[Rfam]
RNA sequence: UGCCGUGUGCAGAAGUUGGAUUGUAUAAGCCCGUAAUACGGACGGGUGUUUCUACAAACUGCCUUAAACAGUUUACUAUAAUCCCCGUUAAGGGGCGU
Numbered sequence: 001u002g003c004c005g006u007g008u009g010c011a012g013a014a015g016u017u018g019g020a021u022u023g024u025a026u027a028a029g030c031c032c033g034u035a036a037u038a039c040g041g042a043c044g045g046g047u048g049u050u051u052c053u054a055c056a057a058a059c060u061g062c063c064u065u066a067a068a069c070a071g072u073u074u075a076c077u078a079u080a081a082u083c084c085c086c087g088u089u090a091a092g093g094g095g096c097g098u
Base pairs, nucleotide, nucleotide: 018084019083020082021081022080023079024078025077029047030046031045032044033043034042056074057073058072059071060070061069
Annotation:
This 98-nucleotide RNA from Ruminococcus sp. CAG:108 belongs to the Rfam family "Purine riboswitch aptamer". About the family: Riboswitches are metabolite binding domains within certain messenger RNAs that serve as precision sensors for their corresponding targets. NCBI's taxonomy places the organism under Bacteria, Bacillati, Bacillota, Oscillospiraceae, Ruminococcus. Its family is annotated with purine nucleobase biosynthetic process in the Gene Ontology.